[Rfam]
RNA sequence: GCCGGGCGCGGUGGCGCGUGCCUGUAAUCCCAGCUACUCGGAAGGCUGAGCCCGGAGGAUCGCUUGAGUCCAGGAGUUCUGGGCUGCAGUGCGCUAUGCCGAUCGAGUGUCCACACUAAGUUCGGCAUCAAUAUGGUGACCUCCCGGGAGCGGGGGAACACCAGGUUGCCUAAGGAGGGGUGAACUGGCCCAGGUCGGAAACGGAGCAGGUCAAAACUCCCGUGCUGAUCUGAAAUGGAGGGACAAAAUGUGAACAAAUAUAGCCAUAAUACUCACUAGAUACUAUGUUGAAAAU
Numbered sequence: 001g002c003c004g005g006g007c008g009c010g011g012u013g014g015c016g017c018g019u020g021c022c023u024g025u026a027a028u029c030c031c032a033g034c035u036a037c038u039c040g041g042a043a044g045g046c047u048g049a050g051c052c053c054g055g056a057g058g059a060u061c062g063c064u065u066g067a068g069u070c071c072a073g074g075a076g077u078u079c080u081g082g083g084c085u086g087c088a089g090u091g092c093g094c095u096a097u098g099c100c101g102a103u104c105g106a107g108u109g110u111c112c113a114c115a116c117u118a119a120g121u122u123c124g125g126c127a128u129c130a131a132u133a134u135g136g137u138g139a140c141c142u143c144c145c146g147g148g149a150g151c152g153g154g155g156g157a158a159c160a161c162c163a164g165g166u167u168g169c170c171u172a173a174g175g176a177g178g179g180g181u182g183a184a185c186u187g188g189c190c191c192a193g194g195u196c197g198g199a200a201a202c203g204g205a206g207c208a209g210g211u212c213a214a215a216a217c218u219c220c221c222g223u224g225c226u227g228a229u230c231u232g233a234a235a236u237g238g239a240g241g242g243a244c245a246a247a248a249u250g251u252g253a254a255c256a257a258a259u260a261u262a263g264c265c266a267u268a269a270u271a272c273u274c275a276c277u278a279g280a281u282a283c284u285a286u287g288u289u290g291a292a293a294a295u
Stems, first nucleotide, its partner, number of pairs: 001046003004023007028043001030041001055295001060291003064287001066283001068281003072277002082274002085271002089267003093264006103253003107249002110246001111242002114237002117234001119231002122228007129168004134163005141156006169175002177220005186213005195204003
Dot-bracket structure: ((((((((((......)))))))....(.(..........).))))........(....(((.(.(.(((.((........((.((..(((.((((((....(((.((.(((.((.(.((.(((((((((((.(((((..((((((....))))))..))))).))))((...)).(((((....(((((....(((....)))....)))))..))))).))))))).))..).))...))...).)).))).....)))))))))..)).)).)).))).)...).)))...)
Description:
Metazoan signal recognition particle RNA: a 295-nucleotide RNA sequence from Dipodomys ordii. The literature on the family includes a 2002 paper in Curr Opin Struct Biol by Wild et al., "Towards the structure of the mammalian signal recognition particle". Rfam classes the family as a non-coding RNA gene. A search with the family's covariance model found it, with a score of 165 bits. The signal recognition particle (SRP) is a universally conserved ribonucleoprotein. It is involved in the co-translational targeting of proteins to membranes. The eukaryotic SRP consists of a 300-nucleotide 7S RNA and six proteins: SRPs 72, 68, 54, 19, 14, and 9. Clan: SRP clan. Lineage of the source: Eukaryota > Bilateria > Rodentia > Dipodomyinae > Dipodomys.